Notes: The record is an 80-nucleotide sequence from Corchorus olitorius, which matches "MIR473 microRNA precursor family" in Rfam. Its family is annotated with RISC complex and miRNA-mediated post-transcriptional gene silencing in the Gene Ontology. On this family, see Lu et al., Plant Cell 2005: "Novel and mechanical stress-responsive MicroRNAs in Populus trichocarpa that are absent from Arabidopsis".
RNA sequence: UUUCUUCACUCUCCUUUAAGGCUUCAAGCUUUAGUUUGAUUUAUUGGUUUAGCUUGAAGCCUUUAAAGGAGAGUGAAAAA
Numbered sequence: 001u002u003u004c005u006u007c008a009c010u011c012u013c014c015u016u017u018a019a020g021g022c023u024u025c026a027a028g029c030u031u032u033a034g035u036u037u038g039a040u041u042u043a044u045u046g047g048u049u050u051a052g053c054u055u056g057a058a059g060c061c062u063u064u065a066a067a068g069g070a071g072a073g074u075g076a077a078a079a080a
Stems, first nucleotide, its partner, number of pairs: 006076010017065001018063008